[Rfam]
RNA: Small nucleolar RNA snR191
Organism: Ceratocystis fimbriata
RNA sequence: UGCCCAAUAGUUUUGUCAGGAUCUCAUCCGCAUCUUCAUGUUGCAGCCGCUUAUGGUUCAAUGGAAGGGGUCUGUUACACUUUGGGCAAAUCAAAUAUACACCUCCACUGCCCCCCAGCGUUUUGCUGGUCGGGCUAGUAUGCUCCGUUUUGGAGUGUGCCCGGAGGAUGUCUGUGGCUCAUAUUGAGUUGAAUGUCAUCAUUUUCCUUCAUGGAAACUCUUUUUCCCGAUGACAUUCUUAGUCUUGGUCCACACAUUC
Numbered sequence: 001u002g003c004c005c006a007a008u009a010g011u012u013u014u015g016u017c018a019g020g021a022u023c024u025c026a027u028c029c030g031c032a033u034c035u036u037c038a039u040g041u042u043g044c045a046g047c048c049g050c051u052u053a054u055g056g057u058u059c060a061a062u063g064g065a066a067g068g069g070g071u072c073u074g075u076u077a078c079a080c081u082u083u084g085g086g087c088a089a090a091u092c093a094a095a096u097a098u099a100c101a102c103c104u105c106c107a108c109u110g111c112c113c114c115c116c117a118g119c120g121u122u123u124u125g126c127u128g129g130u131c132g133g134g135c136u137a138g139u140a141u142g143c144u145c146c147g148u149u150u151u152g153g154a155g156u157g158u159g160c161c162c163g164g165a166g167g168a169u170g171u172c173u174g175u176g177g178c179u180c181a182u183a184u185u186g187a188g189u190u191g192a193a194u195g196u197c198a199u200c201a202u203u204u205u206c207c208u209u210c211a212u213g214g215a216a217a218c219u220c221u222u223u224u225u226c227c228c229g230a231u232g233a234c235a236u237u238c239u240u241a242g243u244c245u246u247g248g249u250c251c252a253c254a255c256a257u258u259c
Stems, first nucleotide, its partner, number of pairs: 003086005019073007027065004099171003103167001107139004112134002115129005141157007174253004179248003191238004197232004203217005
Dot-bracket structure: ..(((((...........(((((((.((((...............................)))).)))))))........)))))............(((.(...((((.((.(((((.....)))))...)).)))).(((((((...))))))).........).)))..((((.(((.........((((..((((..(((((.....)))))...........))))..)))).......))).))))......